[Rfam]
RNA sequence: AGGUCAUUUCUAAGAGGGCUUACAGGACUGUAAAACCAGGAGUUCUUAACUCUAUGGCCGAAGGCCGAAGUUCUCCAUAGGAUGCCAUAGUCACUCAAUAGUGCUGUGUGUUCCUAAGGAGACAUAGCC
Numbered sequence: 001a002g003g004u005c006a007u008u009u010c011u012a013a014g015a016g017g018g019c020u021u022a023c024a025g026g027a028c029u030g031u032a033a034a035a036c037c038a039g040g041a042g043u044u045c046u047u048a049a050c051u052c053u054a055u056g057g058c059c060g061a062a063g064g065c066c067g068a069a070g071u072u073c074u075c076c077a078u079a080g081g082a083u084g085c086c087a088u089a090g091u092c093a094c095u096c097a098a099u100a101g102u103g104c105u106g107u108g109u110g111u112u113c114c115u116a117a118g119g120a121g122a123c124a125u126a127g128c129c
Stems, first nucleotide, its partner, number of pairs: 002059006014047008023039001026037001072122005079115004087107004092103004
Dot-bracket structure: .((((((......((((((((.(..(..........).)))))))))......))))))............(((((..((((....((((.((((....))))))))....))))..))))).......
This 129-nucleotide sequence from Cnephaeus nilssonii belongs to the Rfam family "Small nucleolar RNA SNORA25". Lineage of the source: Eukaryota > Gnathostomata > Boreoeutheria > Yangochiroptera > Cnephaeus. The base pairs follow the family's consensus structure, which was predicted with RNAfold. It is annotated as an H/ACA-box small nucleolar RNA. Its family is annotated with nucleolus and RNA processing in the Gene Ontology. It scores 118 bits against the family's covariance model. Rfam's curators write: ACA25 is a member of the H/ACA class of snoRNA that guide the sites of modification of uridines to pseudouridines.